[Rfam]
RNA sequence: ACACUGAAAGGAGGUGAUCCUGAGUUGAAUUCCAUCAGGAUGUGUGAGGUGGCUGCUCGCUAGAGCCGCCCCUGCCUGUGCAGUAGUGAGGCCGGUACCAGCCUCCGGCGGCAGGCAAUUCCCAGCAGUCACCCGGCCCGUGGGUUCACCGGAGACAUCCCCGGUGCCUCGUCGGCCGCCCUCU
Numbered sequence: 001a002c003a004c005u006g007a008a009a010g011g012a013g014g015u016g017a018u019c020c021u022g023a024g025u026u027g028a029a030u031u032c033c034a035u036c037a038g039g040a041u042g043u044g045u046g047a048g049g050u051g052g053c054u055g056c057u058c059g060c061u062a063g064a065g066c067c068g069c070c071c072c073u074g075c076c077u078g079u080g081c082a083g084u085a086g087u088g089a090g091g092c093c094g095g096u097a098c099c100a101g102c103c104u105c106c107g108g109c110g111g112c113a114g115g116c117a118a119u120u121c122c123c124a125g126c127a128g129u130c131a132c133c134c135g136g137c138c139c140g141u142g143g144g145u146u147c148a149c150c151g152g153a154g155a156c157a158u159c160c161c162c163g164g165u166g167c168c169u170c171g172u173c174g175g176c177c178g179c180c181c182u183c184u
Stems, first nucleotide, its partner, number of pairs: 013057004018052001059116003063112001066111001068109003074102002134178005140172005146166001148165005
RNA: Actinobacteria sRNA Ms_IGR-5
Organism: Kitasatospora sp. Root187